[Rfam]
The record is a 75-nucleotide RNA from Dichanthelium oligosanthes, which matches "Plastid-ycf2 5UTR RNA" in Rfam. Plastid ycf2 is a non-coding RNA (ncRNA) recognised in plastids. It is annotated as a cis-regulatory element. The family's consensus secondary structure was predicted with LocARNA. The organism belongs to Dichanthelium, within Eukaryota.
RNA sequence: GUGCAUCCAGUAGGAAUUGGACCCACAAAUUUACCAAUUAUGAUUUGGACGCUUUAACCAUUCAGCCACGGAUGC
Numbered sequence: 001g002u003g004c005a006u007c008c009a010g011u012a013g014g015a016a017u018u019g020g021a022c023c024c025a026c027a028a029a030u031u032u033a034c035c036a037a038u039u040a041u042g043a044u045u046u047g048g049a050c051g052c053u054u055u056a057a058c059c060a061u062u063c064a065g066c067c068a069c070g071g072a073u074g075c
Stems, first nucleotide, its partner, number of pairs: 003075006010026002013023002041068002045065005051059001